This 330-nucleotide sequence from Trogon melanurus belongs to the Rfam family "Small Cajal body-specific RNA 7". Taxonomically the source falls in Trogon (Eukaryota, Metazoa, Bilateria, Amniota). Rfam 15.1 lists 570 matches to the family in 531 species.
RNA sequence: UGGAAGUGAUGAAACAGAGAUAAUUGGAUGUCCCUUUGAACGGAGUGUGUGUGUGAUAAAUGGAAUUAAACCAAGUCUAGCUGGGGGUGGGGGUGAGGUGGGGGGACGCGUGUGUGUGUGUGUGUGCGUGCACAGAAGAGGCUUGGAACGGGGGCACUGACAACGCGGUGCUGAUUCCGGAGUGCAUCUGAGGCGUGUUGUUGAGUUCUGGGCUGCUGCUUCGCAACAUUGCCGGUGAUUAAAGCCCAAAACAAGCCCACCAGGACAAGCCUCGGCAUCUUAAAUCUCUAACAGGUUCAUUAAUGAAAGUGAUCCUGUGAUCUGAUCCAA
Numbered sequence: 001u002g003g004a005a006g007u008g009a010u011g012a013a014a015c016a017g018a019g020a021u022a023a024u025u026g027g028a029u030g031u032c033c034c035u036u037u038g039a040a041c042g043g044a045g046u047g048u049g050u051g052u053g054u055g056a057u058a059a060a061u062g063g064a065a066u067u068a069a070a071c072c073a074a075g076u077c078u079a080g081c082u083g084g085g086g087g088u089g090g091g092g093g094u095g096a097g098g099u100g101g102g103g104g105g106a107c108g109c110g111u112g113u114g115u116g117u118g119u120g121u122g123u124g125u126g127c128g129u130g131c132a133c134a135g136a137a138g139a140g141g142c143u144u145g146g147a148a149c150g151g152g153g154g155c156a157c158u159g160a161c162a163a164c165g166c167g168g169u170g171c172u173g174a175u176u177c178c179g180g181a182g183u184g185c186a187u188c189u190g191a192g193g194c195g196u197g198u199u200g201u202u203g204a205g206u207u208c209u210g211g212g213c214u215g216c217u218g219c220u221u222c223g224c225a226a227c228a229u230u231g232c233c234g235g236u237g238a239u240u241a242a243a244g245c246c247c248a249a250a251a252c253a254a255g256c257c258c259a260c261c262a263g264g265a266c267a268a269g270c271c272u273c274g275g276c277a278u279c280u281u282a283a284a285u286c287u288c289u290a291a292c293a294g295g296u297u298c299a300u301u302a303a304u305g306a307a308a309g310u311g312a313u314c315c316u317g318u319g320a321u322c323u324g325a326u327c328c329a330a
Base pairs, nucleotide, nucleotide: 001329002328003327004326196228197227198226199225200224201223203221204217205216206215